The record is a 68-nucleotide RNA sequence from Flavobacterium muglaense, which matches "DUF805 RNA" in Rfam.
The organism belongs to Flavobacterium, within Bacteria.
The family has 46 seed sequences and 281 matches in Rfam 15.1.
Nucleotides: 068
Stems, first nucleotide, its partner, number of pairs: 006023004035051003042062002
Number, partner (000 for none) and nucleotide at each position: 001000c002000a003000a004000a005000a006023g007022u008021g009020g010000a011000g012000a013000c014000c015000a016000g017000u018000g019000a020009c021008c022007a023006c024000u025000u026000a027000a028000a029000a030000a031000a032000c033000g034000g035051g036050g037049c038000g039000a040000a041000u042062u043061c044000g045000a046000a047000a048000a049037g050036c051035c052000u053000a054000a055000c056000g057000a058000g059000u060000a061043g062042a063000a064000a065000a066000a067000c068000a
Rfam classes the family as a cis-regulatory element.